[Rfam]
RNA sequence: AUUGAUUGAAUGAUGAAAAAUUUUUCGGAUGUAAACACAGACCUGUUCUGAAUGCGCAAAACCGUGUAGAUAUUUCCGUUGCCUUCCUUCUGAUCAAUCAU
Numbered sequence: 001a002u003u004g005a006u007u008g009a010a011u012g013a014u015g016a017a018a019a020a021u022u023u024u025u026c027g028g029a030u031g032u033a034a035a036c037a038c039a040g041a042c043c044u045g046u047u048c049u050g051a052a053u054g055c056g057c058a059a060a061a062c063c064g065u066g067u068a069g070a071u072a073u074u075u076c077c078g079u080u081g082c083c084u085u086c087c088u089u090c091u092g093a094u095c096a097a098u099c100a101u
Stems, first nucleotide, its partner, number of pairs: 003100003026078004

Record summary:
The record is a 101-nucleotide sequence from Penicillium angulare, which matches "Small nucleolar RNA Z13/snr52" in Rfam. The base pairs follow the family's consensus structure, which was predicted with PFOLD. It is annotated as a C/D-box small nucleolar RNA. Rfam links the family to the GO terms nucleolus and RNA processing.